[Rfam]
RNA sequence: AGGUUUCCUGCAUCAACAAUGCUUGAACGGAACUGU
Numbered sequence: 001a002g003g004u005u006u007c008c009u010g011c012a013u014c015a016a017c018a019a020u021g022c023u024u025g026a027a028c029g030g031a032a033c034u035g036u
Base pairs, nucleotide, nucleotide: 001036003034005032006031007030008029010028013026014025015024016023017021
RNA: Iron response element I